[Rfam]
RNA sequence: CACAUAUCCCGCGGGAGCCCAUGCAUGGGCUGAGAGGGGGCUUAGUAGCCCCGACCGCAACAACCUGAUCCGGGUCAUGCCGGCGGAGGAAGGGAACGCUCAUCCGCG
Dot-bracket structure: ......((((((((..(((((....)))))......(((((......)))))..)))).....(((...((((......))))...)))..)))).............
RNA: TPP riboswitch aptamer (THI element)